A member of the RNA family "c-di-GMP-II-GAG riboswitch aptamer", 83 nucleotides long. The base pairs follow the family's consensus structure, which is taken from published work. Its Rfam clan is "c-di-GMP_II riboswitch clan". A reference for the family is Weinberg et al. (2017), "Bioinformatic analysis of riboswitch structures uncovers variant classes with altered ligand specificity", Proc Natl Acad Sci U S A.
RNA sequence: ACCGCAGCGGGAGGCUCUGACACGCGGCCCAAACACGGCCGCCGGGACCGCGCCGAGCCACUGGCGAGACCGACCCGCGAGAG
Numbered sequence: 001a002c003c004g005c006a007g008c009g010g011g012a013g014g015c016u017c018u019g020a021c022a023c024g025c026g027g028c029c030c031a032a033a034c035a036c037g038g039c040c041g042c043c044g045g046g047a048c049c050g051c052g053c054c055g056a057g058c059c060a061c062u063g064g065c066g067a068g069a070c071c072g073a074c075c076c077g078c079g080a081g082a083g
Stems, first nucleotide, its partner, number of pairs: 003083001005081001007078005013059003023052005029046001037071002040066004